[Rfam]
RNA sequence: AAUAUAAAUGUAAUUGCACCUCGUAUAAUCAUGGGGAUAUGGCCCAUAAGUUUCUACCUGGCUACCGUAAAUGGCCGGACUAUGAGGGAAAGCGGCAUUAUA
Number, nucleotide and partner (000 for none) at each position: 001a000002a000003u000004a000005u000006a000007a000008a000009u000010g000011u000012a000013a000014u000015u000016g000017c000018a000019c087020c086021u085022c084023g083024u082025a081026u000027a000028a000029u049030c000031a047032u046033g045034g044035g043036g000037a000038u000039a000040u000041g000042g000043c035044c034045c033046a032047u031048a000049a029050g000051u000052u000053u000054c000055u000056a000057c000058c078059u077060g076061g075062c074063u073064a072065c000066c000067g000068u000069a000070a000071a000072u064073g063074g062075c061076c060077g059078g058079a000080c000081u025082a024083u023084g022085a021086g020087g019088g000089a000090a000091a000092g000093c000094g000095g000096c000097a000098u000099u000100a000101u000102a000
Rfam assigns this 102-nucleotide RNA from Bacillus sp. FJAT-18017 to the family "Purine riboswitch aptamer". Rfam links the family to the GO term purine nucleobase biosynthetic process.